[Rfam]
RNA sequence: GGCCUCCCUCUGUGGGGCAGUAGAUCUGGGGGCCCCGCGAUCUAUCGCCCCACAGAGGGAGGCC
Numbered sequence: 001g002g003c004c005u006c007c008c009u010c011u012g013u014g015g016g017g018c019a020g021u022a023g024a025u026c027u028g029g030g031g032g033c034c035c036c037g038c039g040a041u042c043u044a045u046c047g048c049c050c051c052a053c054a055g056a057g058g059g060a061g062g063c064c
Stems, first nucleotide, its partner, number of pairs: 001064018020045007029036002
RNA: mir-9242 microRNA precursor family
Organism: Cnephaeus nilssonii